[Rfam]
This 78-nucleotide RNA sequence from Anolis carolinensis belongs to the Rfam family "mir-1788 microRNA precursor family". Gene Ontology terms of the family: RISC complex and miRNA-mediated post-transcriptional gene silencing. Lineage of the source: Eukaryota > Opisthokonta > Vertebrata > Euteleostomi > Anolis.
RNA sequence: CCCUGUGCUGGGCUUGUUUUCAGUUGCCUGCGGCUGAUUAAUAGGGACUCAGGCAGCUAAAGCAAGUCUGAUACAUGA
Numbered sequence: 001c002c003c004u005g006u007g008c009u010g011g012g013c014u015u016g017u018u019u020u021c022a023g024u025u026g027c028c029u030g031c032g033g034c035u036g037a038u039u040a041a042u043a044g045g046g047a048c049u050c051a052g053g054c055a056g057c058u059a060a061a062g063c064a065a066g067u068c069u070g071a072u073a074c075a076u077g078a
Stems, first nucleotide, its partner, number of pairs: 004075001006073002010069011022058009032048001
Dot-bracket structure: ...(.((..(((((((((((.(((((((((.(...............).))))))))))))))))))))..)).)...